[Rfam]
RNA: Group II catalytic intron D1-D4-3
Organism: Paenibacillus roseus
Nucleotides: 172
Base pairs, nucleotide, nucleotide: 001016002015003014004013005012006011028172029171032168035165036164040159041158042157043156044155045154046150047149048148049147050146062145063144064143065142066141071137072136073135075133076132080129081128082127083111084110085109086108089104090103091102092101
Number, partner (000 for none) and nucleotide at each position: 001016u002015c003014c004013a005012c006011c007000g008000u009000g010000a011006g012005g013004u014003g015002g016001a017000a018000u019000c020000u021000g022000a023000a024000g025000g026000a027000a028172g029171c030000u031000g032168g033000a034000g035165g036164c037000a038000a039000a040159g041158u042157c043156c044155c045154g046150a047149c048148c049147c050146g051000a052000g053000g054000a055000a056000c057000a058000c059000g060000a061000a062145u063144c064143g065142u066141a067000u068000c069000a070000g071137g072136c073135a074000u075133c076132c077000a078000a079000a080129g081128u082127g083111g084110g085109a086108c087000g088000a089104g090103u091102c092101u093000g094000c095000a096000u097000u098000a099000c100000a101092a102091g103090a104089c105000g106000a107000a108086g109085u110084c111083c112000a113000a114000u115000a116000a117000a118000c119000u120000g121000c122000a123000c124000g125000g126000a127082c128081a129080c130000g131000a132076g133075g134000a135073u136072g137071u138000a139000a140000a141066u142065g143064c144063g145062g146050c147049g148048g149047g150046u151000g152000c153000a154045u155044g156043g157042g158041a159040u160000g161000a162000a163000a164036g165035u166000u167000g168032c169000a170000c171029g172028c